[Rfam]
RNA sequence: GUGAGACACGUGGUCCGGCGGGCAGGCACGACCGAUAAAGUGAUGGCGGACCGAUGCCGGGCGCAGCUCCCGUGCCGGUCCGCCAAUGAUCAGCCAGCAGCCGCUGCAACCCCAGGGAG
Numbered sequence: 001g002u003g004a005g006a007c008a009c010g011u012g013g014u015c016c017g018g019c020g021g022g023c024a025g026g027c028a029c030g031a032c033c034g035a036u037a038a039a040g041u042g043a044u045g046g047c048g049g050a051c052c053g054a055u056g057c058c059g060g061g062c063g064c065a066g067c068u069c070c071c072g073u074g075c076c077g078g079u080c081c082g083c084c085a086a087u088g089a090u091c092a093g094c095c096a097g098c099a100g101c102c103g104c105u106g107c108a109a110c111c112c113c114a115g116g117g118a119g
Base pairs, nucleotide, nucleotide: 048081049080050079051078052077053076056075058072059071060070061069095106096105097104098103

A member of the RNA family "Streptomyces-metK RNA" from Streptomyces candidus, 119 nucleotides long. A search with the family's covariance model found it, with a score of 115 bits. Rfam classes the family as a small RNA.